This 91-nucleotide RNA sequence from Parafannyhessea umbonata belongs to the Rfam family "Selenocysteine transfer RNA". Rfam 15.1 lists 4,211 matches to the family in 3,344 species. It scores 74 bits against the family's covariance model. Pairs were carried over by alignment from the consensus structure, which is taken from published work.

RNA sequence: GGGAGUAGAAGGGUGACUGGUGCGCCCUCUGGUCUUCAAAACCAGUAUGAGCAGGAGGCUGCUCGGGUGGGUUCGAUUCCCACCUGCUCCC
Numbered sequence: 001g002g003g004a005g006u007a008g009a010a011g012g013g014u015g016a017c018u019g020g021u022g023c024g025c026c027c028u029c030u031g032g033u034c035u036u037c038a039a040a041a042c043c044a045g046u047a048u049g050a051g052c053a054g055g056a057g058g059c060u061g062c063u064c065g066g067g068u069g070g071g072u073u074c075g076a077u078u079c080c081c082a083c084c085u086g087c088u089c090c091c
Stems, first nucleotide, its partner, number of pairs: 001091008011027005017022001029045005048065005068082004